Rfam assigns this 262-nucleotide RNA sequence from Clostridium sp. CAG:81 to the family "Bacterial large signal recognition particle RNA". A search with the family's covariance model found it, with a score of 188 bits. From the family's description: The signal recognition particle (SRP) is a universally conserved ribonucleoprotein involved in the co-translational targeting of proteins to membranes. The family's RNA type in Rfam is non-coding RNA gene. Lineage of the source: Bacteria > Bacillati > Bacillota > Clostridiaceae > Clostridium.
RNA sequence: CCGCACAGCCGGGGAGAUAGCGGUGCCCUGUACCUGCAAUCCGCUACAGCAGGGGUGUUGUUCUGCCUCGGGUACUUCCUUGUGAAGCUGCCCCGGGUAAGCGGCGCUGACGUUUUGGUCUCGCGCAAUGGGACUCUCUGAACCAUGUCAGGGCAGGAAUGCAGCAGCAUUAAGGAGAACCUUCCAUGUGCCGCGAGGGAGCCGGGACCGAGCUGGCUGCCAGGGUAACGUUCAUGAGACGUAUUCAAAGCAGAACGUGCGG
Numbered sequence: 001c002c003g004c005a006c007a008g009c010c011g012g013g014g015a016g017a018u019a020g021c022g023g024u025g026c027c028c029u030g031u032a033c034c035u036g037c038a039a040u041c042c043g044c045u046a047c048a049g050c051a052g053g054g055g056u057g058u059u060g061u062u063c064u065g066c067c068u069c070g071g072g073u074a075c076u077u078c079c080u081u082g083u084g085a086a087g088c089u090g091c092c093c094c095g096g097g098u099a100a101g102c103g104g105c106g107c108u109g110a111c112g113u114u115u116u117g118g119u120c121u122c123g124c125g126c127a128a129u130g131g132g133a134c135u136c137u138c139u140g141a142a143c144c145a146u147g148u149c150a151g152g153g154c155a156g157g158a159a160u161g162c163a164g165c166a167g168c169a170u171u172a173a174g175g176a177g178a179a180c181c182u183u184c185c186a187u188g189u190g191c192c193g194c195g196a197g198g199g200a201g202c203c204g205g206g207a208c209c210g211a212g213c214u215g216g217c218u219g220c221c222a223g224g225g226u227a228a229c230g231u232u233c234a235u236g237a238g239a240c241g242u243a244u245u246c247a248a249a250g251c252a253g254a255a256c257g258u259g260c261g262g
Base pairs, nucleotide, nucleotide: 001262002261003260004259005258006257008056009055010054011029012028013027014026016024018022033053034052035051036050037049062254063253064252065251066250068248070246071245072244073243074242075241079238080237081236082235083234084233085232086231089227090226093224094223096221097220098219101217102216103214104213105212112208113207114206115205116204117203118202119201120197121196122195123194124193125192126188127187129186130185131184132183133182135178136177137176138175139174145170146169147168148167153162154161155160